The record is a 191-nucleotide RNA, which matches "DUF2693 RNA" in Rfam. The family's RNA type in Rfam is small RNA. It is one of the family's seed sequences.
[Rfam]
RNA sequence: GAUCAUUGACAUAAUUGAUAAGGCUAAAAACAAAGAGAUAACUAACGUAGAGAGGCUCUAAGCCCUCUACAAUAGCUUGCAAGUAUAGACCUAACGUGCUAUACGCUGAACCAGCAAAAGCGGUGAAGCCCUCGCAGGGUGAUGAACGCAGAGGCUGGCAACCUCGCCCUUCGUAAGGGGCUUGCAAGCAC
Numbered sequence: 001g002a003u004c005a006u007u008g009a010c011a012u013a014a015u016u017g018a019u020a021a022g023g024c025u026a027a028a029a030a031c032a033a034a035g036a037g038a039u040a041a042c043u044a045a046c047g048u049a050g051a052g053a054g055g056c057u058c059u060a061a062g063c064c065c066u067c068u069a070c071a072a073u074a075g076c077u078u079g080c081a082a083g084u085a086u087a088g089a090c091c092u093a094a095c096g097u098g099c100u101a102u103a104c105g106c107u108g109a110a111c112c113a114g115c116a117a118a119a120g121c122g123g124u125g126a127a128g129c130c131c132u133c134g135c136a137g138g139g140u141g142a143u144g145a146a147c148g149c150a151g152a153g154g155c156u157g158g159c160a161a162c163c164u165c166g167c168c169c170u171u172c173g174u175a176a177g178g179g180g181c182u183u184g185c186a187a188g189c190a191c
Base pairs, nucleotide, nucleotide: 049068050067051066052065054063075189076188077187078186079185080184081183082182083104084103085102086101087100088099111158112157113156114155115154166181167180168179169178
Dot-bracket structure: ................................................((((.(........).))))......((((((((((((((..........))))))......(((((......................................))))).......((((........))))))))))))..